[Rfam]
RNA sequence: ACACGUUGGCAGUCGCUGGCUGAUAUCAGCUAGAGGAAAGUCCAUGCUCGCACCGUCUGUGAUGACGGUAGUGUUUGCGCUGGAUCAAACGAUAAGUCCAGGCAGGCGAAAGCCUGACGGCCGAAGCUAUCCUAAGGUGAUUCACUAAGGAAACACUUCUGUAAAAGUGCCACAGAGACGAGCUGCAUGGGAAACUGUGCAGAUGGAACGGGUAAACCCCGCAAGCGAGAAACCCAAAUUUGGUAGGGGAACCUGGAGGAUUGAACCGAAAAGAACUCCGGGACAUAGCAAUAUGUAGAUAAAUGGCUGCCACUUCCUGAGCGGGAAGUACAGAACAUGGCUUAUAACG
Numbered sequence: 001a002c003a004c005g006u007u008g009g010c011a012g013u014c015g016c017u018g019g020c021u022g023a024u025a026u027c028a029g030c031u032a033g034a035g036g037a038a039a040g041u042c043c044a045u046g047c048u049c050g051c052a053c054c055g056u057c058u059g060u061g062a063u064g065a066c067g068g069u070a071g072u073g074u075u076u077g078c079g080c081u082g083g084a085u086c087a088a089a090c091g092a093u094a095a096g097u098c099c100a101g102g103c104a105g106g107c108g109a110a111a112g113c114c115u116g117a118c119g120g121c122c123g124a125a126g127c128u129a130u131c132c133u134a135a136g137g138u139g140a141u142u143c144a145c146u147a148a149g150g151a152a153a154c155a156c157u158u159c160u161g162u163a164a165a166a167g168u169g170c171c172a173c174a175g176a177g178a179c180g181a182g183c184u185g186c187a188u189g190g191g192a193a194a195c196u197g198u199g200c201a202g203a204u205g206g207a208a209c210g211g212g213u214a215a216a217c218c219c220c221g222c223a224a225g226c227g228a229g230a231a232a233c234c235c236a237a238a239u240u241u242g243g244u245a246g247g248g249g250a251a252c253c254u255g256g257a258g259g260a261u262u263g264a265a266c267c268g269a270a271a272a273g274a275a276c277u278c279c280g281g282g283a284c285a286u287a288g289c290a291a292u293a294u295g296u297a298g299a300u301a302a303a304u305g306g307c308u309g310c311c312a313c314u315u316c317c318u319g320a321g322c323g324g325g326a327a328g329u330a331c332a333g334a335a336c337a338u339g340g341c342u343u344a345u346a347a348c349g
Base pairs, nucleotide, nucleotide: 004349005348006347008311009310010309011308012307013306014305016033017032018031019030020029021028038343039342040341042340043339044338045337046336047229048228049227050226051225052069053068054067055066056065057064075224076223077222078221079220080101081100082099083098084097085096102118103116104115105114106113107112119219120218122161123160125158130151131150132149136146137145138144167217168216169213170212171211183202184201185200186199187198188197189196190195233248234247235246252282253281254280255279256278257277258276283296284295285294286293287292313328314327315326316325317324318323
Dot-bracket structure: ...(((.(((((((.((((((......))))))....[[[.[[[[[(((((((((((......)))))).....(((((((((((..........))))))((((((....))))).)((.((.(....(((...(((.....)))..)))......).)).....(((((...........((((((((....))))))))........)))..))))))))))))))...(((..........)))...(((((((.................)))))))(((((....)))))........))))))).((((((....)))))).......]]]]]]]]...)))